[Rfam]
RNA sequence: AAUAAGCAUUUAAAGUGCGUUGGCAGAGUGCAGAGCGGACACAAUCCUGUUUAUCAAAGCGAAUGAUGCCAAUCAUGUCAUCUUCAGCAAAACGCUCCAAUGCAUCGCUAAGACCGGAUUUCACACCGCGCGGUAGAUCGCAUUGGGUAAUAUCGCCAUUCACGAUAACGGUGACAUUCUCACCGAGGCGGGUC
Numbered sequence: 001a002a003u004a005a006g007c008a009u010u011u012a013a014a015g016u017g018c019g020u021u022g023g024c025a026g027a028g029u030g031c032a033g034a035g036c037g038g039a040c041a042c043a044a045u046c047c048u049g050u051u052u053a054u055c056a057a058a059g060c061g062a063a064u065g066a067u068g069c070c071a072a073u074c075a076u077g078u079c080a081u082c083u084u085c086a087g088c089a090a091a092a093c094g095c096u097c098c099a100a101u102g103c104a105u106c107g108c109u110a111a112g113a114c115c116g117g118a119u120u121u122c123a124c125a126c127c128g129c130g131c132g133g134u135a136g137a138u139c140g141c142a143u144u145g146g147g148u149a150a151u152a153u154c155g156c157c158a159u160u161c162a163c164g165a166u167a168a169c170g171g172u173g174a175c176a177u178u179c180u181c182a183c184c185g186a187g188g189c190g191g192g193u194c
Stems, first nucleotide, its partner, number of pairs: 002054007015040002018037002061078001063076005083112002086109003093102002113193003117189001119188004125134003137166004144158003171183004
This 194-nucleotide RNA sequence from Yersinia enterocolitica belongs to the Rfam family "Yersinia sRNA 251".
Rfam classes the family as an antisense RNA.
For this family Rfam cites "Transcriptomic profiling of Yersinia pseudotuberculosis reveals reprogramming of the Crp regulon by temperature and uncovers Crp as a master regulator of small RNAs" (Nuss et al., PLoS Genet, 2015).
The source organism's lineage runs through Bacteria, Gammaproteobacteria, Enterobacterales, Yersinia and Yersinia enterocolitica.
Rfam's curators put it in the seed alignment.